[Rfam]
RNA: transfer-messenger RNA
Organism: Neorhodopirellula pilleata
RNA sequence: GGGGGCGACUUGGAAUCGACCGGUUGUCAAGAAGCGAAUGCCUGCGUGUCGUGGUUGAUCAGAAGGCCACGUAAAAAUCUGAUCGCAAAUUUUAGUUGCAGAAGAAAACUUUGCACUCGCCGCCUAAGAACAGGUAGCGCGGACUGAGGGGGAUCGCCGGAGUCGCCCGAAUGUCCGUCACAAUUCCGGAUCGCGACCCGUCUUACUCAAGACGCGGGUCGUUAAACAAGAUUUGAGUUAGCCGAUUGGGGAGCCUGUCAAACAGCGCCCGAUGAAGCGAAAAGGAGACCUCGAGUCUCUACAAAUGGUUUGACUACACAUGUAGACGGCAUCGUGGAUGCAUCGCGGGACGGGAGUUCAAUCCUCCCCGCCUCCACUA
Numbered sequence: 001g002g003g004g005g006c007g008a009c010u011u012g013g014a015a016u017c018g019a020c021c022g023g024u025u026g027u028c029a030a031g032a033a034g035c036g037a038a039u040g041c042c043u044g045c046g047u048g049u050c051g052u053g054g055u056u057g058a059u060c061a062g063a064a065g066g067c068c069a070c071g072u073a074a075a076a077a078u079c080u081g082a083u084c085g086c087a088a089a090u091u092u093u094a095g096u097u098g099c100a101g102a103a104g105a106a107a108a109c110u111u112u113g114c115a116c117u118c119g120c121c122g123c124c125u126a127a128g129a130a131c132a133g134g135u136a137g138c139g140c141g142g143a144c145u146g147a148g149g150g151g152g153a154u155c156g157c158c159g160g161a162g163u164c165g166c167c168c169g170a171a172u173g174u175c176c177g178u179c180a181c182a183a184u185u186c187c188g189g190a191u192c193g194c195g196a197c198c199c200g201u202c203u204u205a206c207u208c209a210a211g212a213c214g215c216g217g218g219u220c221g222u223u224a225a226a227c228a229a230g231a232u233u234u235g236a237g238u239u240a241g242c243c244g245a246u247u248g249g250g251g252a253g254c255c256u257g258u259c260a261a262a263c264a265g266c267g268c269c270c271g272a273u274g275a276a277g278c279g280a281a282a283a284g285g286a287g288a289c290c291u292c293g294a295g296u297c298u299c300u301a302c303a304a305a306u307g308g309u310u311u312g313a314c315u316a317c318a319c320a321u322g323u324a325g326a327c328g329g330c331a332u333c334g335u336g337g338a339u340g341c342a343u344c345g346c347g348g349g350a351c352g353g354g355a356g357u358u359c360a361a362u363c364c365u366c367c368c369c370g371c372c373u374c375c376a377c378u379a
Stems, first nucleotide, its partner, number of pairs: 001375007020348003023344001025342003034335004039331004045322005050071005058083006117137001119135003140177005148168003152164003157189005194221006205239001207237001210234001241278002245273005253266002257314004352368005